About this RNA: Rfam assigns this 94-nucleotide RNA sequence from Pullulanibacillus pueri to the family "Glycine riboswitch aptamer". Lineage of the source: Bacteria > Bacillati > Bacilli > Sporolactobacillaceae > Pullulanibacillus.

[Rfam]
RNA sequence: AUGAUGACAAGGGGAGAGAUCGUUUCUAAAACGACGCCGAAGGAGCAAGCCAAAAACGUGUGAAUCUCUCAGGCAAAAAGACUCUUGUUAGACG
Numbered sequence: 001a002u003g004a005u006g007a008c009a010a011g012g013g014g015a016g017a018g019a020u021c022g023u024u025u026c027u028a029a030a031a032c033g034a035c036g037c038c039g040a041a042g043g044a045g046c047a048a049g050c051c052a053a054a055a056a057c058g059u060g061u062g063a064a065u066c067u068c069u070c071a072g073g074c075a076a077a078a079a080g081a082c083u084c085u086u087g088u089u090a091g092a093c094g
Stems, first nucleotide, its partner, number of pairs: 006089008020034004036074003039070002043068003049061002